Small nucleolar RNA snR190: a 197-nucleotide sequence from Saccharomyces kudriavzevii. The literature on the family includes a 1988 paper in Mol Cell Biol by Zagorski et al., "Characterization of an SNR gene locus in Saccharomyces cerevisiae that specifies both dispensible and essential small nuclear RNAs". The base pairs follow the family's consensus structure, which was predicted with CMfinder. It is annotated as a C/D-box small nucleolar RNA.
RNA sequence: GGCCCUGAUGAUAACGGUGUCUCUUCUUUCCUCGUCCGAUUCGACCAUGACGACAAGGGAUUUUAUCUCGUUCUCUUAAUGCGAGUGGUUUUAAAAGAUAGAUAUUGCUUCGGCGAUAUUUUCCCUUUUCUUACCACUUUCAUUUGCAAACGGGAACUUUUCUUGCCAGUGUUAUACAACACAUGCAGAUCUGAGCC
Numbered sequence: 001g002g003c004c005c006u007g008a009u010g011a012u013a014a015c016g017g018u019g020u021c022u023c024u025u026c027u028u029u030c031c032u033c034g035u036c037c038g039a040u041u042c043g044a045c046c047a048u049g050a051c052g053a054c055a056a057g058g059g060a061u062u063u064u065a066u067c068u069c070g071u072u073c074u075c076u077u078a079a080u081g082c083g084a085g086u087g088g089u090u091u092u093a094a095a096a097g098a099u100a101g102a103u104a105u106u107g108c109u110u111c112g113g114c115g116a117u118a119u120u121u122u123c124c125c126u127u128u129u130c131u132u133a134c135c136a137c138u139u140u141c142a143u144u145u146g147c148a149a150a151c152g153g154g155a156a157c158u159u160u161u162c163u164u165g166c167c168a169g170u171g172u173u174a175u176a177c178a179a180c181a182c183a184u185g186c187a188g189a190u191c192u193g194a195g196c197c
Stems, first nucleotide, its partner, number of pairs: 001197003007191003019061007032053005066155007078144004083139007094128004100121009163188004169182005
Gene Ontology terms of the family: RNA processing and nucleolus.